[Rfam]
RNA sequence: ACAUCACUUUGGGGGUGCCAAUACGCUGGCUGAGAAAUACCCUUAGAACCUGAUCCCGGUAAUGCGGGCGCAGGGAAAAGUAGCGAACACACA
Number, nucleotide and partner (000 for none) at each position: 001a000002c000003a000004u000005c000006a081007c080008u079009u078010u077011g043012g042013g041014g040015g000016u037017g030018c029019c028020a027021a000022u000023a000024c000025g000026c000027u020028g019029g018030c017031u000032g000033a000034g000035a000036a000037a016038u000039a000040c014041c013042c012043u011044u000045a000046g000047a000048a000049c074050c073051u072052g071053a000054u000055c068056c067057c066058g065059g000060u000061a000062a000063u000064g000065c058066g057067g056068g055069c000070g000071c052072a051073g050074g049075g000076a000077a010078a009079a008080g007081u006082a000083g000084c000085g000086a000087a000088c000089a000090c000091a000092c000093a000